[Rfam]
RNA: Clostridiales-1 RNA
Organism: Clostridiales bacterium KLE1615
RNA sequence: UGAUACAAGGUUUCCAAAGUCAAAACAGUUCGUGCUUGCACGAAACUGUUUUUGACCUUGGAAACCGUACAAGAAUGAGAAUGCAGCGAUUUCCGAAGGAAAUCAGCGAAUUCGAAUGCUUGUAGACUUGCGAGAACUGCAAAGCAGUGGAGCAAGUCGUAGGUAUCA
Dot-bracket structure: ((((((...((((..((.((((((((((((((((....))))).)))))))).))).))..))))...(((((.((..((((...(((((((((...))))))).))..))))..)).))))).(((((((....((((.....))))...)))))))....))))))